RNA sequence: GGUCACGAGUGCCAGCGCGAAGCCCCGGCUCGCUGGCCGGCAACCCUCCUCCGCGAUGGGGUGCCCCGGGUGACGACCUGGUGGCUGCCGUCCGGCAGUCGCAAGCGCGGACC
Numbered sequence: 001g002g003u004c005a006c007g008a009g010u011g012c013c014a015g016c017g018c019g020a021a022g023c024c025c026c027g028g029c030u031c032g033c034u035g036g037c038c039g040g041c042a043a044c045c046c047u048c049c050u051c052c053g054c055g056a057u058g059g060g061g062u063g064c065c066c067c068g069g070g071u072g073a074c075g076a077c078c079u080g081g082u083g084g085c086u087g088c089c090g091u092c093c094g095g096c097a098g099u100c101g102c103a104a105g106c107g108c109g110g111a112c113c
Base pairs, nucleotide, nucleotide: 001078002077003076004075009038011037012036013035014034015033016032021030022029039065040064041063044061045060046059049055081102082101083100084099085098086097087096088095089094
RNA: SAM (S-adenosyl methionine) riboswitch aptamer
Organism: Petropleomorpha daqingensis